[Rfam]
RNA sequence: AAUCACAGAGGGCAGAACAGGCAGCUGCCGCACCUUUUGGGUUUAAAGAGAUGUGGGACACGCCGCCCCACCUGUGAUU
Numbered sequence: 001a002a003u004c005a006c007a008g009a010g011g012g013c014a015g016a017a018c019a020g021g022c023a024g025c026u027g028c029c030g031c032a033c034c035u036u037u038u039g040g041g042u043u044u045a046a047a048g049a050g051a052u053g054u055g056g057g058a059c060a061c062g063c064c065g066c067c068c069c070a071c072c073u074g075u076g077a078u079u
Base pairs, nucleotide, nucleotide: 001079002078003077004076005075006074007073008072011029012028013027014026015025020064021063022062031048032042033041034040035039053071054070055069056068057067